The record is a 113-nucleotide RNA from Microlunatus parietis, which matches "SAM (S-adenosyl methionine) riboswitch aptamer" in Rfam.
For this family Rfam cites "The aptamer core of SAM-IV riboswitches mimics the ligand-binding site of SAM-I riboswitches" (Weinberg et al., RNA, 2008).
A search with the family's covariance model found it, with a score of 86 bits.
The base pairs follow the family's consensus structure, which is taken from published work.
The organism belongs to Microlunatus, within Bacteria.
Rfam describes the family as follows. SAM-IV is a mRNA element that regulates gene expression via direct sensing of S-adenosylmethionine (SAM or AdoMet). SAM-IV riboswitches share conserved nucleotide positions with the previously described SAM-I riboswitches sequence analysis and molecular recognition experiments suggest that SAM-I and SAM-IV riboswitches share similar ligand binding sites, but have different scaffolds.

[Rfam]
RNA sequence: GGUCAUGAGUGUCAGCGUCAAGCCCCGGCUCGCUGACCGGCAACCCUCGCGGAAGCGGGUGGGGUGCUCCGGGUGAGGACCUGGUCCGGCACAACGUCGGACAAGCCACUUCC
Numbered sequence: 001g002g003u004c005a006u007g008a009g010u011g012u013c014a015g016c017g018u019c020a021a022g023c024c025c026c027g028g029c030u031c032g033c034u035g036a037c038c039g040g041c042a043a044c045c046c047u048c049g050c051g052g053a054a055g056c057g058g059g060u061g062g063g064g065u066g067c068u069c070c071g072g073g074u075g076a077g078g079a080c081c082u083g084g085u086c087c088g089g090c091a092c093a094a095c096g097u098c099g100g101a102c103a104a105g106c107c108a109c110u111u112c113c
Base pairs, nucleotide, nucleotide: 001081002080003079004078009038011037012036013035014034015033016032021030022029039068040067041066044064045063046062048059050057084102085101086100087099088098089097090096